[Rfam]
The family of this 52-nucleotide RNA sequence from Nocardioides terrae is "L17-Actino-Proteobacteria ribosomal protein leader". The base pairs follow the family's consensus structure, which is taken from published work. It is annotated as a cis-regulatory leader. The source organism's lineage runs through Bacteria, Bacillati, Actinomycetota, Propionibacteriales and Nocardioides.

RNA sequence: CGGCCCGCACCCCGCGGGCCGUCUACCCCGGUACCUAGUACGGCCGGAGAGG
Numbered sequence: 001c002g003g004c005c006c007g008c009a010c011c012c013c014g015c016g017g018g019c020c021g022u023c024u025a026c027c028c029c030g031g032u033a034c035c036u037a038g039u040a041c042g043g044c045c046g047g048a049g050a051g052g
Base pairs, nucleotide, nucleotide: 001021002020003019004018005017006016007015008014022052023051024050026049028047029046030045031044032043